Rfam assigns this 48-nucleotide sequence from Fertoeibacter niger to the family "SAM/SAH riboswitch aptamer". A reference for the family is Weickhmann et al. (2019), "The structure of the SAM/SAH-binding riboswitch", Nucleic Acids Res. Pairs were carried over by alignment from the consensus structure, which is taken from published work. Gene Ontology terms of the family: regulation of gene expression and S-adenosylmethionine metabolic process.
RNA sequence: CAACUGUCACAACGGCUUCCUGGCGUGACGGGCUAUAUUAACGGAGCA
Numbered sequence: 001c002a003a004c005u006g007u008c009a010c011a012a013c014g015g016c017u018u019c020c021u022g023g024c025g026u027g028a029c030g031g032g033c034u035a036u037a038u039u040a041a042c043g044g045a046g047c048a
Stems, first nucleotide, its partner, number of pairs: 004031007013022002015047003019044002